The family of this 223-nucleotide RNA sequence from Peptoniphilus harei is "T-box leader".
Pairs were carried over by alignment from the consensus structure, which is taken from published work.
It is annotated as a cis-regulatory leader.
The organism belongs to Peptoniphilus harei, within Bacteria.
The match comes from Rfam's covariance-model search (102 bits).
About the family: Uncharged tRNA acts as the effector for transcription antitermination of genes in the T-box leader family. T-boxes are found upstream of many aminoacyl-tRNA synthetase genes and some amino acid biosynthetic genes usually in Gram-positive bacteria. The anticodon of a specific tRNA base pairs to a specifier sequence within the T-box motif, and the NCCA acceptor tail of the tRNA base pairs to a conserved bulge in the T-box antiterminator hairpin.
RNA sequence: UUAAACCAUUUGAAGAGAAGAGUAAUCCAUUUUGGAAUUUUACAGAGAAGCCCGUUUAGCUGAGAGGGUCAAAGGAAGAUUUGGGUGAACAUGGCCUCUGAUGGGAUUAGUCGAUAUUAGACUUUUCCGGGAGCUCCCGUUAUAGAGAUAGAGUAUGUUGGUACUUGAGAGUGGCAUUCCAUAUGCAAAAUAGGUGGUAACGCGGAAAUAAUUCGUCCUUAUU
Numbered sequence: 001u002u003a004a005a006c007c008a009u010u011u012g013a014a015g016a017g018a019a020g021a022g023u024a025a026u027c028c029a030u031u032u033u034g035g036a037a038u039u040u041u042a043c044a045g046a047g048a049a050g051c052c053c054g055u056u057u058a059g060c061u062g063a064g065a066g067g068g069u070c071a072a073a074g075g076a077a078g079a080u081u082u083g084g085g086u087g088a089a090c091a092u093g094g095c096c097u098c099u100g101a102u103g104g105g106a107u108u109a110g111u112c113g114a115u116a117u118u119a120g121a122c123u124u125u126u127c128c129g130g131g132a133g134c135u136c137c138c139g140u141u142a143u144a145g146a147g148a149u150a151g152a153g154u155a156u157g158u159u160g161g162u163a164c165u166u167g168a169g170a171g172u173g174g175c176a177u178u179c180c181a182u183a184u185g186c187a188a189a190a191u192a193g194g195u196g197g198u199a200a201c202g203c204g205g206a207a208a209u210a211a212u213u214c215g216u217c218c219u220u221a222u223u
Stems, first nucleotide, its partner, number of pairs: 007103002015098003025086005038074003050070001052067002106126001109123004128139003174186004192219003202216005